Source information
Vault RNA: an 82-nucleotide sequence from Chiloscyllium punctatum. It is annotated as a non-coding RNA gene. The match comes from Rfam's covariance-model search (51 bits). Taxonomically the source falls in Chiloscyllium (Eukaryota, Opisthokonta, Craniata, Orectolobiformes). This family of RNAs are found as part of the enigmatic vault ribonucleoprotein complex.
RNA sequence: GCGUCGGCUUUAGCUCAGUAGUUACUUCGAUUUCAUUCAAAUUCUCGUAGCUCGCUAGCUACGUGCGCUGCCCAGCGUUUUA
Numbered sequence: 001g002c003g004u005c006g007g008c009u010u011u012a013g014c015u016c017a018g019u020a021g022u023u024a025c026u027u028c029g030a031u032u033u034c035a036u037u038c039a040a041a042u043u044c045u046c047g048u049a050g051c052u053c054g055c056u057a058g059c060u061a062c063g064u065g066c067g068c069u070g071c072c073c074a075g076c077g078u079u080u081u082a
Base pairs, nucleotide, nucleotide: 002077003076004075006073007072013066014065016063018062019061020060021059028054029053030052